[Rfam]
The family of this 77-nucleotide RNA from Geotalea uraniireducens is "c-di-GMP-I riboswitch aptamer".
The base pairs follow the family's consensus structure, which is taken from published work.
The organism belongs to Geotalea uraniireducens, within Bacteria.
RNA sequence: ACGCGAUACUACUAAACCACCCGCGAGGGUGGGGCGGAAAGCCCACAGGGUCUUUAAAAGACAGCCGGGUUGCCGAA
Numbered sequence: 001a002c003g004c005g006a007u008a009c010u011a012c013u014a015a016a017c018c019a020c021c022c023g024c025g026a027g028g029g030u031g032g033g034g035c036g037g038a039a040a041g042c043c044c045a046c047a048g049g050g051u052c053u054u055u056a057a058a059a060g061a062c063a064g065c066c067g068g069g070u071u072g073c074c075g076a077a
Base pairs, nucleotide, nucleotide: 012037013036017032018031019030020029021028022027040071041070042069043068046067048066049065050062051061052060